[Rfam]
Description
A member of the RNA family "Small nucleolar RNA snoR74" from Momordica charantia, 131 nucleotides long. Rfam links the family to the GO terms RNA processing and nucleolus. The source organism's lineage runs through Eukaryota, Streptophyta, Tracheophyta, Spermatophyta and Momordica. The family's consensus secondary structure was predicted with WAR. A reference for the family is Marker et al. (2002), "Experimental RNomics: identification of 140 candidates for small non-messenger RNAs in the plant Arabidopsis thaliana", Curr Biol.
RNA sequence: AUAAAAGCAGGGCUCUGUUGCCUUCUGUGAACAGGGCUCUCGUAAACAUCAGGGAAAUUACACGUGCAUUGUUAUUGGGUGAACCUCUGUAACACAUAAUGUCCGAAGGUUCAGUAAAUGAUGCUACAUAU
Numbered sequence: 001a002u003a004a005a006a007g008c009a010g011g012g013c014u015c016u017g018u019u020g021c022c023u024u025c026u027g028u029g030a031a032c033a034g035g036g037c038u039c040u041c042g043u044a045a046a047c048a049u050c051a052g053g054g055a056a057a058u059u060a061c062a063c064g065u066g067c068a069u070u071g072u073u074a075u076u077g078g079g080u081g082a083a084c085c086u087c088u089g090u091a092a093c094a095c096a097u098a099a100u101g102u103c104c105g106a107a108g109g110u111u112c113a114g115u116a117a118a119u120g121a122u123g124c125u126a127c128a129u130a131u
Stems, first nucleotide, its partner, number of pairs: 005049001007047001011038002014035004066124008080113007